[Rfam]
RNA sequence: UGUCUCCUCCACCCUCCCAAGGAUGGAUUAACCCGCUCCCCAGUGAGCGGGUUUUUUUAU
Numbered sequence: 001u002g003u004c005u006c007c008u009c010c011a012c013c014c015u016c017c018c019a020a021g022g023a024u025g026g027a028u029u030a031a032c033c034c035g036c037u038c039c040c041c042a043g044u045g046a047g048c049g050g051g052u053u054u055u056u057u058u059a060u
Stems, first nucleotide, its partner, number of pairs: 008027004013022003030053008
The record is a 60-nucleotide RNA sequence from Noviherbaspirillum pedocola, which matches "Betaproteobacteria toxic small RNA" in Rfam. A search with the family's covariance model found it, with a score of 55 bits. Pairs were carried over by alignment from the consensus structure, which was predicted with WAR. Lineage of the source: Bacteria > Pseudomonadati > Betaproteobacteria > Oxalobacteraceae > Noviherbaspirillum. Rfam 15.1 lists 951 matches to the family in 508 species. About the family: Overexpression in amino aid rich medium attenuates growth, suggesting role in repressing amino acid intake and metabolism. On this family, see Kimelman et al., Genome Res 2012: "A vast collection of microbial genes that are toxic to bacteria".